[Rfam]
RNA sequence: AAAAGGCGAUGAUGCGGAAGGUUGUUGGCACACCCGGCCCCUUUGCCAUGGCGGGGUGUCAAGAGAAUUUUCGCGGAGAAUGUCUAUUAUAAAAUGGGCGA
Number, nucleotide and partner (000 for none) at each position: 001a000002a000003a000004a000005g000006g000007c000008g000009a000010u000011g000012a000013u000014g074015c073016g072017g000018a071019a070020g069021g068022u000023u000024g000025u062026u061027g060028g059029c058030a057031c056032a000033c000034c000035c000036g000037g000038c000039c000040c000041c000042u000043u000044u000045g000046c000047c000048a000049u000050g000051g000052c000053g000054g000055g000056g031057u030058g029059u028060c027061a026062a025063g000064a000065g000066a000067a000068u021069u020070u019071u018072c016073g015074c014075g000076g000077a000078g000079a000080a000081u100082g099083u098084c097085u000086a000087u000088u000089a000090u000091a000092a000093a000094a000095u000096g000097g084098g083099c082100g081101a000